The family of this 84-nucleotide RNA from Cnephaeus nilssonii is "mir-9215 microRNA precursor family".
[Rfam]
RNA sequence: UGAAGUGUCCGACACUAGGGCAUGUGGCUGUCGUGGGUUGGUGGGAACCAGGCUUGCCCAGGGUCAGUGUUCUCAGCGUUCAGU
Numbered sequence: 001u002g003a004a005g006u007g008u009c010c011g012a013c014a015c016u017a018g019g020g021c022a023u024g025u026g027g028c029u030g031u032c033g034u035g036g037g038u039u040g041g042u043g044g045g046a047a048c049c050a051g052g053c054u055u056g057c058c059c060a061g062g063g064u065c066a067g068u069g070u071u072c073u074c075a076g077c078g079u080u081c082a083g084u
Base pairs, nucleotide, nucleotide: 001082002081003080004079006078007077008075011071012070013069014068015067016066018065021062023060024059026058027057028056030053031052032051036049037048038047039046

Rfam 15.1 lists 1,824 matches to the family in 6 species.